[Rfam]
Nucleotides: 068
Base pairs, nucleotide, nucleotide: 031048032047033046034045035044036043037042
Number, partner (000 for none) and nucleotide at each position: 001000u002000g003000a004000u005000a006000a007000u008000g009000c010000a011000g012000a013000a014000g015000a016000u017000u018000g019000g020000u021000u022000u023000a024000a025000a026000g027000g028000a029000c030000u031048u032047g033046g034045a035044g036043a037042u038000a039000g040000u041000u042037a043036u044035u045034u046033u047032u048031a049000g050000u051000c052000a053000u054000a055000u056000a057000g058000u059000a060000g061000a062000g063000a064000u065000g066000a067000u068000a